RNA sequence: UAAGGCAAACUAAAAAGCGUAGUAUUUAAACCACGCUAGUUCUUGCCUGCUGAACUCAUUGUGUAAAGGACCUGUAAAGGUCUUUUU
Numbered sequence: 001u002a003a004g005g006c007a008a009a010c011u012a013a014a015a016a017g018c019g020u021a022g023u024a025u026u027u028a029a030a031c032c033a034c035g036c037u038a039g040u041u042c043u044u045g046c047c048u049g050c051u052g053a054a055c056u057c058a059u060u061g062u063g064u065a066a067a068g069g070a071c072c073u074g075u076a077a078a079g080g081u082c083u084u085u086u087u
Stems, first nucleotide, its partner, number of pairs: 003048006009040003016037005022031002065086009
Dot-bracket structure: ..(((((((((....(((((.((......)).))))))))..))))))................(((((((((....))))))))).